[Rfam]
RNA: caulobacter sRNA CC2171
Organism: Novosphingobium chloroacetimidivorans
RNA sequence: CAACAACGGAAAGGAGGUGGUCUGAUGUCUCAUUGUCAUAUGCCGCGCGCAGCGGAUCAGAUGAGUUCGGCCUCCGUCCCGGGGGCACGGCUCGACUGAGCUGCUGCGUCAUGCAGGACAAUGGAAGGGCCGCCUCGCAAGGGGCGGCCCU
Number, nucleotide and partner (000 for none) at each position: 001c000002a000003a000004c000005a000006a000007c000008g000009g000010a000011a000012a000013g000014g000015a000016g023017g022018u000019g000020g000021u000022c017023u016024g000025a000026u000027g000028u000029c000030u000031c123032a122033u121034u120035g119036u118037c117038a000039u000040a000041u000042g000043c000044c055045g000046c000047g053048c000049g000050c000051a000052g000053c047054g000055g044056a062057u061058c000059a000060g000061a057062u056063g096064a000065g091066u000067u090068c089069g088070g000071c000072c084073u083074c082075c081076g000077u000078c000079c000080c000081g075082g074083g073084g072085g000086c000087a000088c069089g068090g067091c065092u000093c000094g000095a000096c063097u000098g000099a000100g000101c000102u000103g000104c116105u115106g114107c113108g112109u000110c000111a000112u108113g107114c106115a105116g104117g037118a036119c035120a034121a033122u032123g031124g000125a000126a151127g150128g149129g148130c147131c146132g145133c144134c143135u142136c141137g000138c000139a000140a000141g136142g135143g134144g133145c132146g131147g130148c129149c128150c127151u126